[Rfam]
RNA sequence: GGCUGGGCUGAAGGUAGUGCGUCAUCUUAAUUGAUUGUUCACAGUCAGUUACAGAUAAUACGCCUUGUUCUACUCUUUCCUCGCUUCUCACUACUGCACUUGACUAGUCUAGU
Numbered sequence: 001g002g003c004u005g006g007g008c009u010g011a012a013g014g015u016a017g018u019g020c021g022u023c024a025u026c027u028u029a030a031u032u033g034a035u036u037g038u039u040c041a042c043a044g045u046c047a048g049u050u051a052c053a054g055a056u057a058a059u060a061c062g063c064c065u066u067g068u069u070c071u072a073c074u075c076u077u078u079c080c081u082c083g084c085u086u087c088u089c090a091c092u093a094c095u096g097c098a099c100u101u102g103a104c105u106a107g108u109c110u111a112g113u
Stems, first nucleotide, its partner, number of pairs: 001109006008102001010101002014097002016092004021087001044074001047071002
Rfam assigns this 113-nucleotide RNA from Macaca mulatta to the family "Y RNA".
The match comes from Rfam's covariance-model search (54 bits).